SAM-V (S-adenosyl methionine) riboswitch aptamer: a 67-nucleotide RNA from Pelagibacterales bacterium SAG-MED07.
Its family is annotated with S-adenosylmethionine metabolic process and regulation of gene expression in the Gene Ontology.
Taxonomically the source falls in Candidatus Pelagibacterales (Bacteria, Pseudomonadati, Pseudomonadota, Alphaproteobacteria).
On this family, see Huang and Lilley, Nucleic Acids Res 2018: "Structure and ligand binding of the SAM-V riboswitch".
From the family's description: SAM-V riboswitch is a cis-regulatory element that was recognised in marine bacteria it recognise S-adenosylmethione (SAM). The binding of SAM leads to the association of the triplex third strand in the aptamer of SAM-V riboswitch that stabilizes a short helix and occludes the ribosome binding site.

RNA sequence: UCAAUCUGUAGGCAUUUGAACUGUAUUGUGCGCCUAGCAUAAAGCUGAAGCACUAAAAAAGUAGUGA
Numbered sequence: 001u002c003a004a005u006c007u008g009u010a011g012g013c014a015u016u017u018g019a020a021c022u023g024u025a026u027u028g029u030g031c032g033c034c035u036a037g038c039a040u041a042a043a044g045c046u047g048a049a050g051c052a053c054u055a056a057a058a059a060a061g062u063a064g065u066g067a
Stems, first nucleotide, its partner, number of pairs: 010035004026056002028053004037045002